[Rfam]
RNA: Bacterial small subunit ribosomal RNA, nucleotides 944 to 1527
Nucleotides: 584
Stems, first nucleotide, its partner, number of pairs: 001475002003472003007469007015459002019423005024316001026314008034305002040055004064300007077124002079121005088101005105116004127289002130287004136283002138278003141274001143272002148187006154163003166179004193266004198234007208223002212221002237257002240254005320375007332363003337356002342351003382413001387408007429451007478583001480580001483576002488570004493565003498560006506552004514545001516543004522538003527534002
Number, partner (000 for none) and nucleotide at each position: 001475u002474g003472a004471c005470g006000g007469g008468g009467g010466c011465c012464c013463g014000c015459a016458c017000a018000a019423g020422c021421g022420g023419u024316g025000g026314a027313g028312c029311a030310u031309g032308u033307g034305g035304u036000u037000u038000a039000a040055u041054u042053c043052g044000a045000a046000g047000c048000a049000a050000c051000g052043c053042g054041a055040a056000g057000a058000a059000c060000c061000u062000u063000a064300c065299c066298a067297g068296g069295u070294c071000u072000u073000g074000a075000c076000a077124u078123c079121u080120g081119g082118u083117g084000c085000a086000a087000a088101c089100c090099u091098a092097a093000g094000a095000g096000a097092u098091u099090a100089g101088g102000c103000g104000u105116u106115c107114c108113c109000u110000u111000c112000g113108g114107g115106g116105a117083c118082a119081c120080c121079a122000a123078g124077a125000c126000a127289g128288g129000u130287g131286g132285u133284g134000c135000a136283u137282g138278g139277c140276u141274g142000u143272c144271g145000u146000c147000a148187g149186c150185u151184c152183g153182u154163g155162u156161c157000g158000u159000g160000a161156g162155a163154u164000g165000u166179u167178g168177g169176g170000u171000u172000a173000a174000g175000u176169c177168c178167c179166g180000c181000a182153a183152c184151g185150a186149g187148c188000g189000c190000a191000a192000c193266c194265c195264u196263u197000g198234u199233u200232a201231u202230u203229a204228g205000u206000u207000g208223c209222c210000a211000g212221c213220a214000u215000u216000a217000a218000g219000u220213u221212g222209g223208g224000c225000a226000c227000u228204c229203u230202a231201a232200u233199g234198a235000g236000a237257c238256u239000g240254c241253c242252g243251g244250u245000g246000a247000c248000a249000a250244a251243c252242c253241g254240g255000a256238g257237g258000a259000a260000g261000g262000u263196g264195g265194g266193g267000a268000c269000g270000a271144c272143g273000u274141c275000a276140a277139g278138u279000c280000a281000u282137c283136a284133u285132g286131c287130c288128c289127c290000u291000u292000a293000u294070g295069a296068c297067c298066u299065g300064g301000g302000c303000u304035a305034c306000a307033c308032a309031c310030g311029u312028g313027c314026u315000a316024c317000a318000a319000u320375g321374g322373g323372c324371a325370g326369u327000a328000c329000a330000a331000c332363g333362a334361g335000g336000a337356g338355c339000g340000a341000a342351c343350c344349u345000g346000u347000g348000a349344a350343g351342g352000c353000a354000a355338g356337c357000g358000a359000a360000u361334c362333u363332c364000u365000g366000a367000a368000a369326g370325c371324u372323g373322u374321u375320c376000u377000c378000a379000g380000u381000u382413c383000g384000g385000a386000c387408u388407g389406u390405a391404g392403g393402c394000u395000g396000c397000a398000a399000c400000u401000c402393g403392c404391c405390u406389a407388c408387a409000c410000g411000a412000a413382g414000c415000u416000g417000g418000a419023a420022u421021c422020g423019c424000u425000a426000g427000u428000a429451a430450u431449c432448g433447c434446g435445g436000a437000u438000c439000a440000g441000c442000a443000c444000g445435c446434c447433g448432c449431g450430g451429u452000g453000a454000a455000u456000a457000c458016g459015u460000u461000c462000c463013c464012g465011g466010g467009c468008c469007u470005u471004g472003u473000a474002c475001a476000c477000a478583c479000c480580g481000c482000c483576c484575g485000u486000c487000a488570c489569a490568c491567c492000a493565u494564g495563g496000a497000a498560g499559u500558c501557u502556g503555c504000a505000a506552u507551g508550c509549c510000c511000a512000a513000a514545g515000c516543c517542g518541g519540u520000g521000g522538c523537c524536u525000a526000a527534c528533c529000u530000u531000c532000g533528g534527g535000a536524a537523g538522g539000a540519g541518c542517c543516g544000u545514c546000u547000a548000a549509g550508g551507c552506a553000g554000g555503g556502c557501a558500g559499a560498u561000g562000a563495c564494u565493g566000g567491g568490g569489u570488g571000a572000a573000g574000u575484c576483g577000u578000a579000a580480c581000a582000a583478g584000g